[Rfam]
RNA: isrN Hfq binding RNA
Nucleotides: 143
Stems, first nucleotide, its partner, number of pairs: 025112004030107002048077001050075005058067001060065001080103004116141001118139001120137003
Number, partner (000 for none) and nucleotide at each position: 001000a002000a003000a004000u005000a006000a007000c008000g009000g010000g011000u012000u013000c014000g015000u016000c017000a018000c019000g020000c021000g022000u023000g024000g025112u026111a027110u028109c029000c030107g031106g032000g033000c034000g035000g036000u037000a038000a039000u040000g041000g042000u043000a044000a045000a046000u047000u048077g049000u050075u051074c052073u053072g054071c055000u056000g057000a058067g059000a060065u061000u062000c063000a064000g065060a066000c067058u068000c069000c070000g071054g072053c073052a074051g075050g076000c077048c078000u079000g080103a081102c082101g083100g084000a085000u086000a087000c088000u089000g090000a091000g092000u093000c094000c095000g096000a097000a098000c099000g100083u101082c102081g103080u104000u105000a106031u107030c108000a109028g110027a111026u112025g113000a114000g115000u116141g117000a118139c119000c120137a121136g122135c123000u124000c125000a126000c127000g128000c129000c130000u131000g132000g133000a134000a135122g136121c137120u138000g139118g140000c141116c142000u143000c